[Rfam]
RNA: Actino-pnp RNA
Organism: Streptomyces griseoviridis
Nucleotides: 062
Base pairs, nucleotide, nucleotide: 001062002061003060004059005058006057007056009054010053011052012051013050017046018045019044021042022041023040024039025038026037028036029035
Number, partner (000 for none) and nucleotide at each position: 001062g002061c003060c004059g005058g006057u007056c008000c009054u010053c011052g012051g013050u014000a015000g016000u017046g018045g019044c020000c021042c022041c023040c024039g025038g026037g027000a028036g029035u030000a031000c032000g033000a034000c035029a036028c037026c038025c039024c040023g041022g042021g043000a044019g045018c046017u047000u048000c049000g050013a051012u052011c053010g054009a055000a056007g057006a058005c059004c060003g061002g062001u